[Rfam]
Nucleotides: 107
Stems, first nucleotide, its partner, number of pairs: 003105006013042001015041003021032003027076003043069004048065002050062004073099001078096006
Number, partner (000 for none) and nucleotide at each position: 001000u002000a003105c004104u005103u006102a007101u008100c009000c010000a011000g012000a013042g014000u015041g016040g017039u018000g019000g020000a021032g022031g023030g024000a025000a026000c027076u028075g029074g030023c031022c032021c033000u034000u035000u036000g037000a038000a039017a040016c041015c042013c043069a044068g045067c046066a047000a048065c049064c050062u051061g052060c053059a054000u055000g056000u057000u058000g059053u060052g061051c062050a063000a064049g065048g066046u067045g068044c069043u070000a071000a072000c073099u074029c075028c076027a077000a078096c079095a080094a081093a082092a083091u084000g085000a086000u087000u088000u089000u090000c091083a092082u093081u094080u095079u096078g097000a098000a099073a100008g101007a102006u103005a104004a105003g106000g107000u
Annotation
Shown here is a 107-nucleotide sequence from Priestia veravalensis, a member of the family "SAM riboswitch aptamer (S box leader)". Lineage of the source: Bacteria > Bacillati > Bacillota > Bacilli > Priestia. A search with the family's covariance model found it, with a score of 89 bits. Gene Ontology term of the family: regulation of gene expression. Pairs were carried over by alignment from the consensus structure, which is taken from published work.